Shown here is a 74-nucleotide RNA from Crocodylus porosus, a member of the family "Mammalian CPEB3 ribozyme".
A search with the family's covariance model found it, with a score of 42 bits.
Lineage of the source: Eukaryota > Metazoa > Tetrapoda > Sauria > Crocodylus.
[Rfam]
RNA sequence: UUGCAAGUUCAAGGCCAUAGCAGAAGUGCUCACGGUGCAGCCUGUCAGAUGCCAAUUAAUUUGUGAAUUCUGCU
Dot-bracket structure: ............[[[...((((((((((.......))).]]]...(((((........)))))....)))))))